RNA sequence: AGCGAGACUAGAGUCACAUCCUGACACCCUCUCAUUGCCCUGGUGUGCUAGAGUCCUCGUAGAUCAGACUCUCUGCUUAUUCAUUGGCUGAGGCGACACUAGCCCAGCCAAUCACCAGCUCAGAGACAGCC
Numbered sequence: 001a002g003c004g005a006g007a008c009u010a011g012a013g014u015c016a017c018a019u020c021c022u023g024a025c026a027c028c029c030u031c032u033c034a035u036u037g038c039c040c041u042g043g044u045g046u047g048c049u050a051g052a053g054u055c056c057u058c059g060u061a062g063a064u065c066a067g068a069c070u071c072u073c074u075g076c077u078u079a080u081u082c083a084u085u086g087g088c089u090g091a092g093g094c095g096a097c098a099c100u101a102g103c104c105c106a107g108c109c110a111a112u113c114a115c116c117a118g119c120u121c122a123g124a125g126a127c128a129g130c131c
Stems, first nucleotide, its partner, number of pairs: 002060005007054003012049002015047006023039001025037002071123002075119003083112005089106002092104003
The family of this 131-nucleotide RNA from Acipenser ruthenus is "Small nucleolar RNA SNORA3/SNORA45 family". A reference for the family is Huttenhofer et al. (2001), "RNomics: an experimental approach that identifies 201 candidates for novel, small, non-messenger RNAs in mouse", EMBO J. The family's RNA type in Rfam is H/ACA-box small nucleolar RNA. The source organism's lineage runs through Eukaryota, Actinopterygii, Acipenserinae, Acipenserini and Acipenser.